Shown here is a 360-nucleotide RNA from Saccharomyces mikatae, a member of the family "Nuclear RNase P". Gene Ontology terms of the family: ribonuclease P activity, tRNA processing and ribonuclease P complex. Ribonuclease P (RNase P) is a ubiquitous endoribonuclease, found in archaea, bacteria and eukarya as well as chloroplasts and mitochondria. The sequence is in the family's curated seed alignment. The organism belongs to Saccharomyces mikatae, within Eukaryota. The family's RNA type in Rfam is ribozyme.

Nucleotides: 360
Base pairs, nucleotide, nucleotide: 001360002359003358004357010354011353012352015317016316017315018314019313020312021311030081031080032079033078034077045063046062047061048060050058090343091342092341093340094339095257096256097255098254145158147156148155149154166179167178168177169176170175190250191249192248193247194246195245196244210235211234212233318331319330320329321328
Number, partner (000 for none) and nucleotide at each position: 001360g002359g003358a004357a005000c006000a007000g008000u009000g010354g011353u012352a013000a014000u015317u016316c017315c018314u019313a020312c021311g022000a023000u024000u025000a026000a027000g028000a029000a030081a031080c032079c033078u034077g035000u036000u037000u038000g039000c040000a041000g042000a043000a044000g045063g046062a047061c048060u049000c050058g051000c052000a053000c054000u055000a056000c057000g058050c059000c060048a061047g062046u063045c064000a065000u066000u067000a068000a069000a070000a071000u072000u073000u074000u075000a076000u077034c078033a079032g080031g081030u082000g083000g084000g085000a086000a087000a088000u089000u090343c091342g092341g093340u094339g095257g096256a097255a098254c099000a100000c101000a102000g103000u104000g105000g106000a107000g108000c109000c110000u111000c112000g113000u114000c115000c116000u117000c118000c119000g120000g121000g122000u123000c124000a125000a126000u127000g128000u129000c130000u131000u132000a133000g134000a135000c136000a137000a138000u139000g140000g141000c142000c143000c144000c145158u146000a147156c148155u149154c150000c151000u152000g153000a154149g155148a156147g157000a158145a159000g160000a161000a162000a163000u164000a165000u166179a167178c168177u169176g170175g171000g172000g173000a174000a175170c176169c177168a178167g179166u180000c181000u182000u183000u184000a185000c186000c187000g188000a189000c190250c191249g192248u193247u194246g195245u196244u197000a198000u199000c200000a201000g202000a203000a204000a205000u206000a207000g208000u209000a210235c211234g212233g213000a214000g215000c216000c217000u218000g219000g220000c221000c222000u223000a224000g225000g226000u227000c228000a229000g230000a231000c232000u233212u234211c235210g236000a237000u238000g239000g240000g241000a242000a243000c244196g245195g246194c247193a248192a249191c250190g251000g252000u253000u254098g255097u256096u257095c258000c259000g260000u261000u262000u263000g264000a265000c266000u267000u268000g269000u270000c271000g272000c273000c274000u275000g276000c277000u278000a279000c280000g281000g282000c283000g284000u285000g286000c287000g288000u289000g290000u291000c292000a293000a294000g295000g296000u297000c298000u299000g300000u301000u302000g303000a304000g305000u306000g307000c308000a309000a310000u311021c312020g313019u314018a315017g316016g317015a318331c319330g320329c321328c322000a323000u324000a325000c326000c327000g328321g329320g330319c331318g332000a333000a334000c335000c336000c337000g338000a339094u340093a341092c342091c343090g344000a345000u346000u347000a348000c349000u350000g351000c352012u353011g354010c355000u356000g357004u358003u359002c360001c